[Rfam]
RNA sequence: GUACGUCAAGAGCACACCCGGCGCGAGCCGGGGCCGCAAAGCCCACGGAUCCAGGCGACUCCCUCCGCCUGGAUGGCCGGGUUCCAGUA
Numbered sequence: 001g002u003a004c005g006u007c008a009a010g011a012g013c014a015c016a017c018c019c020g021g022c023g024c025g026a027g028c029c030g031g032g033g034c035c036g037c038a039a040a041g042c043c044c045a046c047g048g049a050u051c052c053a054g055g056c057g058a059c060u061c062c063c064u065c066c067g068c069c070u071g072g073a074u075g076g077c078c079g080g081g082u083u084c085c086a087g088u089a
Base pairs, nucleotide, nucleotide: 012037013036017032018031019030020029021028022027040083041082042081043080046079047078048077049074050073051072052071053070054069055068056067057066
RNA: c-di-GMP-I riboswitch aptamer